[Rfam]
Nucleotides: 174
Base pairs, nucleotide, nucleotide: 001016002015003014004013005012006011028174030172032170035167036165040160041159042158043157044156045155046151047150048149049148050147062146063145064144065143066142067141073138074137075136078133079132080131081130082129083128086114087113088112089111092107093106094105095104
Number, partner (000 for none) and nucleotide at each position: 001016u002015c003014c004013g005012u006011g007000g008000c009000g010000a011006c012005a013004c014003g015002g016001a017000a018000u019000c020000u021000g022000a023000a024000g025000g026000a027000a028174g029000c030172g031000a032170g033000c034000g035167g036165c037000a038000a039000a040160c041159u042158u043157c044156c045155g046151g047150u048149c049148u050147g051000a052000g053000g054000a055000a056000c057000a058000c059000g060000a061000a062146c063145u064144u065143c066142a067141u068000a069000u070000a071000a072000g073138g074137c075136u076000a077000g078133g079132u080131a081130u082129c083128a084000u085000u086114g087113g088112a089111u090000g091000a092107g093106u094105u095104u096000g097000c098000u099000a100000a101000a102000c103000a104095a105094a106093a107092c108000a109000a110000a111089g112088u113087c114086c115000u116000u117000u118000c119000u120000g121000c122000c123000g124000a125000a126000g127000g128083u129082g130081a131080u132079a133078c134000a135000g136075a137074g138073u139000a140000a141067a142066u143065g144064a145063a146062g147050c148049a149048g150047a151046u152000a153000g154000a155045u156044g157043g158042a159041a160040g161000g162000a163000a164000a165036g166000a167035u168000u169000g170032c171000a172030c173000u174028c
A member of the RNA family "Group II catalytic intron D1-D4-3" from Anoxybacillus flavithermus, 174 nucleotides long. NCBI's taxonomy places the organism under Bacteria, Bacillota, Caryophanales, Anoxybacillaceae, Anoxybacillus flavithermus. The family has 406 seed sequences and 4,274 matches in Rfam 15.1. The pairing is the family consensus, mapped onto this sequence. It is one of the family's seed sequences.